RNA sequence: UUUGUGAGAACCAUGUGAAUCAUUACACUACUUGAUUCAAAUGGUUCUCGCCG
Numbered sequence: 001u002u003u004g005u006g007a008g009a010a011c012c013a014u015g016u017g018a019a020u021c022a023u024u025a026c027a028c029u030a031c032u033u034g035a036u037u038c039a040a041a042u043g044g045u046u047c048u049c050g051c052c053g
Stems, first nucleotide, its partner, number of pairs: 004051011016039007
Source information
The family of this 53-nucleotide sequence from Actinidia chinensis is "Plastid-ccsA-ndhD-2 3UTR RNA". The source organism's lineage runs through Eukaryota, Embryophyta, asterids, Ericales and Actinidia chinensis. Rfam classes the family as a cis-regulatory element. A reference for the family is Richter et al. (2023), "Retrograde signaling in plants: A critical review focusing on the GUN pathway and beyond", Plant Commun. The family's consensus secondary structure was predicted with LocARNA. A search with the family's covariance model found it, with a score of 54 bits. From the family's description: Plastid ccsA-ndhD-2 is a non-coding RNA (ncRNA) recognised in plastids. It was found in the three prime untranslated region (3UTR) of ccsA and ndhD genes, its 3UTR location suggests a role in transcript maturation.